[Rfam]
RNA: mir-998 microRNA precursor family
Organism: Aquarana catesbeiana
RNA sequence: CAGCUGCAAACCGGAGCUGAGCGGCAAGGUGCUUCAUUCACCAUUCAGGGUGAAUGAAGCACCUUGCCGCUCAGCUCUGGUUUGCAGCUG
Numbered sequence: 001c002a003g004c005u006g007c008a009a010a011c012c013g014g015a016g017c018u019g020a021g022c023g024g025c026a027a028g029g030u031g032c033u034u035c036a037u038u039c040a041c042c043a044u045u046c047a048g049g050g051u052g053a054a055u056g057a058a059g060c061a062c063c064u065u066g067c068c069g070c071u072c073a074g075c076u077c078u079g080g081u082u083u084g085c086a087g088c089u090g
Base pairs, nucleotide, nucleotide: 003088004087005086006085007084009082011080012079013078014077015076017074018073019072022069023068024067025066026065027064028063029062032059033058034057035056036055